Shown here is a 72-nucleotide RNA sequence from Govanella unica, a member of the family "tRNA". The source organism's lineage runs through Bacteria, Pseudomonadati, Alphaproteobacteria, Emcibacterales and Govanella. The family's consensus secondary structure is taken from published work.

[Rfam]
RNA sequence: GGGCGCGUAGCUCAGCGGUAGAGCACUGCGUUCACAUCGCAGGGGUCGCAAGUUCGAACCUUGCCGCGCCCA
Numbered sequence: 001g002g003g004c005g006c007g008u009a010g011c012u013c014a015g016c017g018g019u020a021g022a023g024c025a026c027u028g029c030g031u032u033c034a035c036a037u038c039g040c041a042g043g044g045g046u047c048g049c050a051a052g053u054u055c056g057a058a059c060c061u062u063g064c065c066g067c068g069c070c071c072a
Stems, first nucleotide, its partner, number of pairs: 001071007010024004026042005048064005